[Rfam]
RNA sequence: CAAGCGUUCUAUCUCCUUAAACAUUCAUCGUCUUGUACACGAUGGUUGUUUAAGGAGCUGAAACGCUA
Numbered sequence: 001c002a003a004g005c006g007u008u009c010u011a012u013c014u015c016c017u018u019a020a021a022c023a024u025u026c027a028u029c030g031u032c033u034u035g036u037a038c039a040c041g042a043u044g045g046u047u048g049u050u051u052a053a054g055g056a057g058c059u060g061a062a063a064c065g066c067u068a
Stems, first nucleotide, its partner, number of pairs: 003067006010060002013057011025045007
Dot-bracket structure: ..((((((.((.(((((((((((.(((((((.......))))))).))))))))))).)).)))))).
This 68-nucleotide RNA from Nematostella vectensis belongs to the Rfam family "mir-9449 microRNA precursor family". Taxonomically the source falls in Nematostella (Eukaryota, Metazoa, Cnidaria, Anthozoa). Rfam's curators put it in the seed alignment. Gene Ontology terms of the family: miRNA-mediated post-transcriptional gene silencing and RISC complex. The family's consensus secondary structure was predicted with RNAalifold.